Record summary:
The family of this 71-nucleotide RNA from Spinacia oleracea is "Small nucleolar RNA U49".

RNA sequence: UCCCAUUGAUGAAGAAUUCCCAUUAAAAAUUGGAAGUGCCGUCUAACACUUUAUAUAGCAGAAUCGAAGGU
Numbered sequence: 001u002c003c004c005a006u007u008g009a010u011g012a013a014g015a016a017u018u019c020c021c022a023u024u025a026a027a028a029a030u031u032g033g034a035a036g037u038g039c040c041g042u043c044u045a046a047c048a049c050u051u052u053a054u055a056u057a058g059c060a061g062a063a064u065c066g067a068a069g070g071u
Stems, first nucleotide, its partner, number of pairs: 014065002033052006
It scores 39 bits against the family's covariance model.
Its Rfam clan is "SNORD49 clan".
The base pairs follow the family's consensus structure, which was predicted with CMfinder.
Rfam links the family to the GO terms RNA processing and nucleolus.
Lineage of the source: Eukaryota > Embryophyta > Tracheophyta > eudicotyledons > Spinacia.